[Rfam]
RNA sequence: UCGCCCACAAUGCCCUCAACGGUUUCAACACGGAUGUGGCUGGGUGCGUGGUGUGAGCGGAUACGAUGCACUUGCCGGUCGGCGUAUGCCGAAGCCCUGUGAAGGGGCAUCCCUGCUGGGGCCGUAGUUCGGCGCAGGGUCGUCGUUCAAGUCGGUUCCAACUUUGGUCUCCUCGCGCUAACCCCGUAGCGUGUGGUUUUUAGCGGGCUCCAGGCCCGCUUUUUUUU
Numbered sequence: 001u002c003g004c005c006c007a008c009a010a011u012g013c014c015c016u017c018a019a020c021g022g023u024u025u026c027a028a029c030a031c032g033g034a035u036g037u038g039g040c041u042g043g044g045u046g047c048g049u050g051g052u053g054u055g056a057g058c059g060g061a062u063a064c065g066a067u068g069c070a071c072u073u074g075c076c077g078g079u080c081g082g083c084g085u086a087u088g089c090c091g092a093a094g095c096c097c098u099g100u101g102a103a104g105g106g107g108c109a110u111c112c113c114u115g116c117u118g119g120g121g122c123c124g125u126a127g128u129u130c131g132g133c134g135c136a137g138g139g140u141c142g143u144c145g146u147u148c149a150a151g152u153c154g155g156u157u158c159c160a161a162c163u164u165u166g167g168u169c170u171c172c173u174c175g176c177g178c179u180a181a182c183c184c185c186g187u188a189g190c191g192u193g194u195g196g197u198u199u200u201u202a203g204c205g206g207g208c209u210c211c212a213g214g215c216c217c218g219c220u221u222u223u224u225u226u227u
Stems, first nucleotide, its partner, number of pairs: 005167003019125009029115002032112006038076003044071006051064004079092005095106004128150002131147002171196002174193007202220008

The family of this 227-nucleotide RNA from Paraburkholderia panacisoli is "Burkholderia sRNA Bp1_Cand871_SIPHT". NCBI's taxonomy places the organism under Bacteria, Pseudomonadota, Betaproteobacteria, Burkholderiales, Paraburkholderia. A search with the family's covariance model found it, with a score of 214 bits. Pairs were carried over by alignment from the consensus structure, which was predicted with CMfinder. For this family Rfam cites "Computational discovery and RT-PCR validation of novel Burkholderia conserved and Burkholderia pseudomallei unique sRNAs" (Khoo et al., BMC Genomics, 2012). Its family is annotated with bacterial biofilm matrix in the Gene Ontology. Rfam classes the family as a small RNA.